[Rfam]
Nucleotides: 358
Stems, first nucleotide, its partner, number of pairs: 001354010012323007020037002023034004042341003046338005051230004058259004063226005068082005083097001084095004098221002103219002105215003120160002122156006170186005189210002193206005234279002238271001240269004251263004286306002288303002291300003
Number, partner (000 for none) and nucleotide at each position: 001354g002353c003352a004351g005350u006349u007348g008347a009346u010345u011000a012323g013322g014321c015320a016319a017318u018317c019000g020037c021036u022000c023034g024033c025032c026031c027000u028000c029000a030000u031026g032025g033024g034023c035000u036021a037020g038000a039000g040000g041000a042341a043340a044339g045000u046338c047337c048336g049335g050334g051230c052229a053228g054227c055000a056000u057000a058259g059258g060257a061256u062000a063226c064225a065224a066223c067222a068082g069081u070080c071079g072078c073000u074000a075000a076000c077000g078072g079071c080070g081069a082068c083097c084095g085094g086093g087092g088000g089000u090000g091000a092087c093086c094085c095084u096000a097083g098221g099220g100000a101000a102000a103219g104218u105215g106214c107213c108000a109000c110000a111000g112000a113000a114000a115000c116000g117000a118000u119000a120160c121159c122156g123155c124154c125153a126152u127151c128000u129000c130000a131000a132000a133000c134000a135000a136000c137000a138000a139000c140000u141000u142000g143000u144000u145000g146000c147000g148000a149000c150000u151127g152126a153125u154124g155123g156122u157000a158000a159121g160120g161000g162000u163000g164000a165000a166000a167000g168000g169000a170186g171185u172184g173183g174182g175000g176000u177000a178000a179000a180000a181000g182174c183173c184172c185171a186170c187000a188000g189210u190209c191000g192000a193206c194205c195204g196203c197202g198000g199000u200000g201000a202197c203196g204195c205194g206193g207000a208000a209190g210189a211000g212000a213107g214106g215105u216000a217000a218104a219103c220099c221098c222067u223066g224065u225064u226063g227054g228053c229052u230051g231000c232000a233000a234279g235278g236000u237000g238271g239000c240269u241268g242267g243266u244000a245000c246000a247000c248000a249000u250000a251263g252262g253261g254260c255000u256061a257060u258059c259058c260254g261253u262252c263251c264000g265000u266243g267242c268241c269240a270000a271238c272000c273000g274000a275000u276000a277000u278235c279234c280000g281000c282000u283000u284000g285000a286306u287305c288303c289302g290000c291300c292299u293298g294000g295000c296000a297000a298293c299292a300291g301000a302289c303288g304000u305287g306286g307000c308000u309000a310000g311000a312000u313000a314000g315000a316000u317018g318017a319016u320015u321014g322013u323012c324000c325000u326000c327000g328000a329000c330000a331000g332000a333000a334050c335049c336048c337047g338046g339044c340043u341042u342000a343000c344000a345010a346009a347008u348007c349006a350005a351004c352003u353002g354001c355000a356000u357000a358000u